[Rfam]
RNA: chrB-a RNA
Organism: Sphingomonas sp. IBVSS2
RNA sequence: GCCAUGGGGAAUGCGAUCUCCCCAUGAGGCGUCAGCCAAAGCAUCGCGUCCUGGUUUUCGAUGAAGGACGCAUCAUG
Numbered sequence: 001g002c003c004a005u006g007g008g009g010a011a012u013g014c015g016a017u018c019u020c021c022c023c024a025u026g027a028g029g030c031g032u033c034a035g036c037c038a039a040a041g042c043a044u045c046g047c048g049u050c051c052u053g054g055u056u057u058u059c060g061a062u063g064a065a066g067g068a069c070g071c072a073u074c075a076u077g
Stems, first nucleotide, its partner, number of pairs: 005024006046071006